[Rfam]
RNA sequence: UGCAAAUGAUGUCUUUCUCACGAUGGUCUUCCAAGCCUGCAGGGUUCUGACGACAGUGCCUUUUGGCAACACUGAUGCAGUCAA
Numbered sequence: 001u002g003c004a005a006a007u008g009a010u011g012u013c014u015u016u017c018u019c020a021c022g023a024u025g026g027u028c029u030u031c032c033a034a035g036c037c038u039g040c041a042g043g044g045u046u047c048u049g050a051c052g053a054c055a056g057u058g059c060c061u062u063u064u065g066g067c068a069a070c071a072c073u074g075a076u077g078c079a080g081u082c083a084a
Base pairs, nucleotide, nucleotide: 001079002078003077004076
Small nucleolar RNA SNORD35: an 84-nucleotide sequence from Amphiprion percula.
Taxonomically the source falls in Amphiprion (Eukaryota, Bilateria, Teleostomi, Eurypterygia).
The base pairs follow the family's consensus structure, which was predicted with PFOLD.
The match comes from Rfam's covariance-model search (64 bits).
Rfam describes the family as follows. U35 is a C/D box snoRNA located in intron 6 of ribosomal protein L13A and intron 3 of ribosomal protein S11 in humans and at homologous positions in mouse and chicken ribosomal protein genes.